[Rfam]
RNA sequence: UUUGGGCGCGGUGAUGGAGUUCACCAUCUACUACAAAUAUGGAAAACCGUCCAACUUCUUUAGCCGGACUAAUAACUCCUACCUAUAA
Number, nucleotide and partner (000 for none) at each position: 001u000002u000003u000004g000005g000006g000007c000008g000009c000010g025011g024012u023013g022014a000015u000016g079017g078018a077019g076020u075021u074022c013023a012024c011025c010026a000027u000028c000029u000030a000031c000032u000033a000034c000035a000036a000037a000038u000039a000040u000041g000042g000043a000044a000045a000046a000047c000048c000049g069050u068051c067052c066053a000054a000055c000056u000057u000058c000059u000060u000061u000062a000063g000064c000065c000066g052067g051068a050069c049070u000071a000072a000073u000074a021075a020076c019077u018078c017079c016080u000081a000082c000083c000084u000085a000086u000087a000088a000
Annotation:
Fluoride riboswitch aptamer (crcB RNA motif): an 88-nucleotide RNA. The base pairs follow the family's consensus structure, which is taken from published work. It is one of the family's seed sequences.